[Rfam]
RNA: Bacterial large signal recognition particle RNA
Organism: Kurthia sibirica
RNA sequence: CCGUGCUAGGUGGGAAAUUAGCGGUGUCCUGUAACUCGCAAUCCGCUUUAGCGAGACUGAAUUCCUUUUCUAGGUUGUCCGAAUUGUAGAGCAGCCUUUUGCACGUAGUGUUGACGAUUGGGUCCUGCGCAAUGAGUUCCCACGAACCAUGUCAGGUCCGAGAGGAAGCAGCAUUAAGUGGUCAAACUUAUGUGCCGCAGGAUCGCCUAAUCUGAGCUAACGACAAAAGUAACGUUUAUGUUCGGCUGUCAAAAAAAGGUGCACGG
Numbered sequence: 001c002c003g004u005g006c007u008a009g010g011u012g013g014g015a016a017a018u019u020a021g022c023g024g025u026g027u028c029c030u031g032u033a034a035c036u037c038g039c040a041a042u043c044c045g046c047u048u049u050a051g052c053g054a055g056a057c058u059g060a061a062u063u064c065c066u067u068u069u070c071u072a073g074g075u076u077g078u079c080c081g082a083a084u085u086g087u088a089g090a091g092c093a094g095c096c097u098u099u100u101g102c103a104c105g106u107a108g109u110g111u112u113g114a115c116g117a118u119u120g121g122g123u124c125c126u127g128c129g130c131a132a133u134g135a136g137u138u139c140c141c142a143c144g145a146a147c148c149a150u151g152u153c154a155g156g157u158c159c160g161a162g163a164g165g166a167a168g169c170a171g172c173a174u175u176a177a178g179u180g181g182u183c184a185a186a187c188u189u190a191u192g193u194g195c196c197g198c199a200g201g202a203u204c205g206c207c208u209a210a211u212c213u214g215a216g217c218u219a220a221c222g223a224c225a226a227a228a229g230u231a232a233c234g235u236u237u238a239u240g241u242u243c244g245g246c247u248g249u250c251a252a253a254a255a256a257a258g259g260u261g262c263a264c265g266g
Base pairs, nucleotide, nucleotide: 001266002265003264004263005262006261009058010057011056012030013029014028015027017025018024019023035055036054037053038052039051064259065258066257067256068255069254073250074249075248077246080244081243082242083241084240086239087238088237089236090235097228098227099226100225101224105221106220107218108217109216116212117211118210119209120208121207122206123205124201125200126199127198128197129196130192131191133190134189135188136187137186140181141180142179143178149174150173151172152171157166158165159164